A member of the RNA family "Bacterial RNase P class B" from Fructobacillus pseudoficulneus, 369 nucleotides long. The family's RNA type in Rfam is ribozyme. The family is grouped with related families in Rfam's "RNaseP clan". Taxonomically the source falls in Fructobacillus (Bacteria, Bacillati, Bacillota, Bacilli). A search with the family's covariance model found it, with a score of 299 bits.
RNA sequence: GAUACUGAGUAAUUGCGCAUGAUAUUUCUCAUGUGAGGAAGGUCCAUGCUCGCACACUCUGCGAUGGGUGUAGUGUUUGUGCUGGGAUAAAGAAUAAACCCAGGGGUAACGAAAGUUACUACGGCAACUGAAAUGGCUACGGCUUUGCUAUGCCAAAAUAGGUGUGAAAGUGCCAUAGAAACGUAUUCUUAGGCGAAAGCUUAAGGCUUGAGACGAGGUAAACCCCACAAGCGGGCAACCCAAACUUUGGUAGGGGCGGCUAACCUAGUGAACUGAAACGAUGGUUGGUAUGGCGGUAACGCUUAGAUAGAUGAUUACUGAAGGUACUUGAUCCCUGUUAAGUACUGGAACAAAACAUGGCCUACAGGU
Numbered sequence: 001g002a003u004a005c006u007g008a009g010u011a012a013u014u015g016c017g018c019a020u021g022a023u024a025u026u027u028c029u030c031a032u033g034u035g036a037g038g039a040a041g042g043u044c045c046a047u048g049c050u051c052g053c054a055c056a057c058u059c060u061g062c063g064a065u066g067g068g069u070g071u072a073g074u075g076u077u078u079g080u081g082c083u084g085g086g087a088u089a090a091a092g093a094a095u096a097a098a099c100c101c102a103g104g105g106g107u108a109a110c111g112a113a114a115g116u117u118a119c120u121a122c123g124g125c126a127a128c129u130g131a132a133a134u135g136g137c138u139a140c141g142g143c144u145u146u147g148c149u150a151u152g153c154c155a156a157a158a159u160a161g162g163u164g165u166g167a168a169a170g171u172g173c174c175a176u177a178g179a180a181a182c183g184u185a186u187u188c189u190u191a192g193g194c195g196a197a198a199g200c201u202u203a204a205g206g207c208u209u210g211a212g213a214c215g216a217g218g219u220a221a222a223c224c225c226c227a228c229a230a231g232c233g234g235g236c237a238a239c240c241c242a243a244a245c246u247u248u249g250g251u252a253g254g255g256g257c258g259g260c261u262a263a264c265c266u267a268g269u270g271a272a273c274u275g276a277a278a279c280g281a282u283g284g285u286u287g288g289u290a291u292g293g294c295g296g297u298a299a300c301g302c303u304u305a306g307a308u309a310g311a312u313g314a315u316u317a318c319u320g321a322a323g324g325u326a327c328u329u330g331a332u333c334c335c336u337g338u339u340a341a342g343u344a345c346u347g348g349a350a351c352a353a354a355a356c357a358u359g360g361c362c363u364a365c366a367g368g369u
Stems, first nucleotide, its partner, number of pairs: 004369003007365001008319007016035006040363003044360005049235005054071006077230005082103005104122001105120006123225002127163003134155004141149003170223002172219003187206008239255003259289007290304001292303004323346010
Dot-bracket structure: ...(((((((((((.((((((........))))))....[[[.[[[[[(((((((((((......)))))).....((((((((((............)))))(((((((....)))))).)((..(((....((((...(((...)))..)))).....)))......(((((............((((((((....))))))))..........)))..))))))))))))))...(((...........)))...(((((((.................)))))))(.((((....)))))........)))))))...((((((((((....)))))))))).........]]]]]]]].).)))